[Rfam]
RNA sequence: ACUGCACCUAGAGGUGUUGCAGGUGUGGCUGCUAUGUCACAUGUGUGUCAGUAGGUGGCAGAGAAGAGAAAGGCUAUGUUUACACUCAGUGUUCUGACCCGCAUACAUCUGAAUGAUAGGCAGCCUAACACU
Numbered sequence: 001a002c003u004g005c006a007c008c009u010a011g012a013g014g015u016g017u018u019g020c021a022g023g024u025g026u027g028g029c030u031g032c033u034a035u036g037u038c039a040c041a042u043g044u045g046u047g048u049c050a051g052u053a054g055g056u057g058g059c060a061g062a063g064a065a066g067a068g069a070a071a072g073g074c075u076a077u078g079u080u081u082a083c084a085c086u087c088a089g090u091g092u093u094c095u096g097a098c099c100c101g102c103a104u105a106c107a108u109c110u111g112a113a114u115g116a117u118a119g120g121c122a123g124c125c126u127a128a129c130a131c132u
Stems, first nucleotide, its partner, number of pairs: 002061004007055004013049003019046003024041006068129001071126005077120001083115002086112004090107003
Rfam assigns this 132-nucleotide RNA sequence to the family "Small nucleolar RNA SNORA17". Rfam links the family to the GO terms nucleolus and RNA processing. snoRNA ACA 17 belongs to the H/ACA family of snoRNAs and is predicted to guide pseudouridylation of the 28S rRNA at positions U4659 and U4598. It shares the same host gene together with ACA43. NB This family has a high threshold value to exclude a large number of closely related sequences that do not appear to have conserved H and ACA boxes, and may be pseudogenes. It is annotated as an H/ACA-box small nucleolar RNA. Rfam's curators put it in the seed alignment. A reference for the family is Ofengand and Bakin (1997), "Mapping to nucleotide resolution of pseudouridine residues in large subunit ribosomal RNAs from representative eukaryotes, prokaryotes, archaebacteria, mitochondria and chloroplasts", J Mol Biol. Clan: SNORA17 clan.